The record is a 512-nucleotide part of an RNA from Methylobacter tundripaludum, which matches "Bacterial large subunit ribosomal RNA" in Rfam. The organism belongs to Methylobacter tundripaludum, within Bacteria.
RNA sequence: GAAUAAGCGCAUACGGUGGAUGCCUAGGCAGUGAGAGGCGAUGAAGGACGUUGUAGCAUGCGAUAAGUCUCGGGGAGUUUGCAAACUAACUUUGAUCCGAGAAUUUCCGAAUGGGGAAACCCGGCCCGCAUCAGCGGGUCACAGUACAGUGAAUACAUAGCUGUAUUGAGCGAACCUGGGGAACUGAAACAUCUAAGUACCCAGAGGAAAAGAAAUCAACCGAGAUUCCCUUAGUAGCGGCGAGCGAACGGGGAUUAGCCCUUAAGUUGUACAGUUGUUAGUGGAACAGUCUGGAAAGUCUGGCGAUACAGGGUGAUAGCCCCGUACACGAAAACGCUGUGCAGUGAAAUCGAGUAGGUCGGAGCACGUGAAACUUUGACUGAACAUGGGGGGACCAUCCUCCAAGGCUAAAUACUCCUUACUGACCGAUAGUGAACCAGUACCGUGAGGGAAAGGCGAAAAGAACCCCGGAGAGGGGAGUGAAAUAGAUCCUGAAACCGUAUGCGUACAAG
Number, nucleotide and partner (000 for none) at each position: 001g000002a000003a000004u000005a000006a000007g507008c506009g505010c504011a503012u502013a501014c500015g499016g498017u000018g000019g000020a000021u000022g492023c456024c455025u000026a000027g427028g426029c424030a423031g422032u421033g420034a419035g418036a416037g415038g171039c170040g000041a000042u000043g000044a000045a000046g108047g107048a106049c062050g061051u060052u000053g000054u000055a000056g000057c000058a000059u000060g051061c050062g049063a000064u000065a000066a000067g000068u102069c101070u100071c099072g098073g097074g096075g000076a000077g090078u089079u088080u000081g000082c000083a000084a000085a000086c000087u000088a079089a078090c077091u000092u000093u000094g000095a000096u074097c073098c072099g071100a070101g069102a068103a000104u000105u000106u048107c047108c046109g000110a000111a000112u000113g122114g121115g120116g000117a000118a000119a000120c115121c114122c113123g140124g139125c138126c137127c136128g135129c134130a000131u000132c000133a000134g129135c128136g127137g126138g125139u124140c123141a000142c168143a167144g166145u165146a164147c163148a162149g161150u160151g000152a000153a000154u000155a000156c000157a000158u000159a000160g150161c149162u148163g147164u146165a145166u144167u143168g142169a000170g039171c038172g000173a000174a000175c206176c204177u203178g202179g201180g200181g000182a000183a000184c000185u000186g193187a192188a000189a000190c000191a000192u187193c186194u000195a000196a000197g000198u000199a000200c180201c179202c178203a177204g176205a000206g175207g000208a000209a000210a000211a000212g000213a000214a000215a000216u223217c222218a000219a000220c000221c000222g217223a216224g000225a000226u412227u254228c253229c252230c251231u250232u000233a000234g000235u000236a000237g245238c244239g000240g000241c000242g000243a000244g238245c237246g000247a000248a000249c000250g231251g230252g229253g228254a227255u000256u000257a409258g408259c407260c406261c000262u000263u000264a000265a000266g000267u344268u343269g342270u341271a340272c339273a338274g337275u000276u336277g335278u334279u333280a000281g329282u328283g327284g000285a000286a000287c302288a301289g300290u000291c298292u000293g000294g000295a000296a000297a000298g291299u000300c289301u288302g287303g000304c000305g309306a000307u000308a000309c305310a000311g323312g322313g321314u000315g000316a000317u000318a000319g000320c000321c313322c312323c311324g000325u000326a000327c283328a282329c281330g000331a000332a000333a279334a278335c277336g276337c274338u273339g272340u271341g270342c269343a268344g267345u000346g000347a000348a000349a000350u000351c000352g000353a000354g000355u000356a000357g381358g380359u379360c378361g377362g376363a375364g374365c000366a000367c000368g000369u000370g000371a000372a000373a000374c364375u363376u362377u361378g360379a359380c358381u357382g000383a000384a000385c000386a000387u000388g403389g402390g401391g400392g399393g000394a000395c000396c000397a000398u000399c392400c391401u390402c389403c388404a000405a000406g260407g259408c258409u257410a000411a000412a226413u000414a000415c037416u036417c000418c035419u034420u033421a032422c031423u030424g029425a000426c028427c027428g000429a000430u000431a000432g000433u000434g000435a000436a000437c000438c000439a000440g000441u000442a000443c450444c449445g000446u000447g000448a000449g444450g443451g000452a000453a000454a000455g024456g023457c000458g000459a000460a000461a000462a000463g000464a000465a000466c478467c477468c476469c475470g000471g000472a000473g000474a000475g469476g468477g467478g466479a000480g000481u000482g000483a000484a000485a000486u000487a000488g000489a000490u000491c000492c022493u000494g000495a000496a000497a000498c016499c015500g014501u013502a012503u011504g010505c009506g008507u007508a000509c000510a000511a000512g000